[Rfam]
RNA: Glycine riboswitch aptamer
Nucleotides: 088
Stems, first nucleotide, its partner, number of pairs: 006083002010079004020033004035068003038064002042062003048055001
Number, partner (000 for none) and nucleotide at each position: 001000c002000c003000c004000a005000g006083c007082u008000a009000g010079g011078c012077a013076g014000g015000a016000g017000a018000g019000c020033c021032c022031g023030c024000c025000a026000a027000c028000a029000c030023g031022c032021g033020g034000c035068a036067c037066c038064g039063a040000a041000g042062g043061c044060g045000c046000a047000g048055a049000c050000a051000c052000c053000c054000u055048u056000a057000a058000a059000u060044c061043g062042c063039u064038c065000a066037g067036g068035u069000a070000a071000a072000c073000g074000g075000a076013c077012u078011g079010c080000a081000c082007a083006g084000c085000a086000u087000c088000a